[Rfam]
Shown here is an 88-nucleotide RNA from Halalkalibacter wakoensis, a member of the family "c-di-GMP-I riboswitch aptamer". Lineage of the source: Bacteria > Bacilli > Caryophanales > Halalkalibacter > Halalkalibacter wakoensis. Gene Ontology term of the family: cyclic-di-GMP binding.

RNA sequence: AUUAUAUAUUGGCAAACUAUUUGAAAGAAUAGGGCGCAAAACUAGAGGGGCUAAUUCUAUUUUGUAGAGAUGCCAGCCAGUUGCACGA
Numbered sequence: 001a002u003u004a005u006a007u008a009u010u011g012g013c014a015a016a017c018u019a020u021u022u023g024a025a026a027g028a029a030u031a032g033g034g035c036g037c038a039a040a041a042c043u044a045g046a047g048g049g050g051c052u053a054a055u056u057c058u059a060u061u062u063u064g065u066a067g068a069g070a071u072g073c074c075a076g077c078c079a080g081u082u083g084c085a086c087g088a
Stems, first nucleotide, its partner, number of pairs: 012037002017032006040082004047078002049074003056068004